[Rfam]
RNA sequence: UUGUGUGUGAGGAAUAGUGAGCUAGGAAAUCCUUGGGGUCGAAACACGGCAAGACUCCCAAGGGUUUUCUAUUA
Numbered sequence: 001u002u003g004u005g006u007g008u009g010a011g012g013a014a015u016a017g018u019g020a021g022c023u024a025g026g027a028a029a030u031c032c033u034u035g036g037g038g039u040c041g042a043a044a045c046a047c048g049g050c051a052a053g054a055c056u057c058c059c060a061a062g063g064g065u066u067u068u069c070u071a072u073u074a
Base pairs, nucleotide, nucleotide: 015071024070025069026068027067030064031063035059036058037057038055039054040053

Cyano-1 RNA: a 74-nucleotide RNA sequence from Oscillatoria sp. FACHB-1406.
The family's RNA type in Rfam is small RNA.
The family has 265 seed sequences and 283 matches in Rfam 15.1.